[Rfam]
RNA sequence: UGAAAGCAUUGUCAAGCGCCCAGGCGGGAUGCGUGCUUGCACGUAAGCCCGUCUGGGCAUUUGACAAUCAAGCCGGAAUGAGCAAGUAAGGCGAUAGCCUGGAUUGCGAAUUUUGGCGGCAGAUGCGGAAGCGCUGAAGGCGCGAAGCAGCUGGCUUUCA
Numbered sequence: 001u002g003a004a005a006g007c008a009u010u011g012u013c014a015a016g017c018g019c020c021c022a023g024g025c026g027g028g029a030u031g032c033g034u035g036c037u038u039g040c041a042c043g044u045a046a047g048c049c050c051g052u053c054u055g056g057g058c059a060u061u062u063g064a065c066a067a068u069c070a071a072g073c074c075g076g077a078a079u080g081a082g083c084a085a086g087u088a089a090g091g092c093g094a095u096a097g098c099c100u101g102g103a104u105u106g107c108g109a110a111u112u113u114u115g116g117c118g119g120c121a122g123a124u125g126c127g128g129a130a131g132c133g134c135u136g137a138a139g140g141c142g143c144g145a146a147g148c149a150g151c152u153g154g155c156u157u158u159c160a
Stems, first nucleotide, its partner, number of pairs: 001160007009067004015061002018058011030046001031044005072117008082107004089100004120153003124149003131143004

Source information:
A member of the RNA family "Clostridiales-1 RNA" from Oscillospiraceae bacterium Marseille-Q3528, 160 nucleotides long. The family's RNA type in Rfam is small RNA. The match comes from Rfam's covariance-model search (118 bits). The family's consensus secondary structure is taken from published work.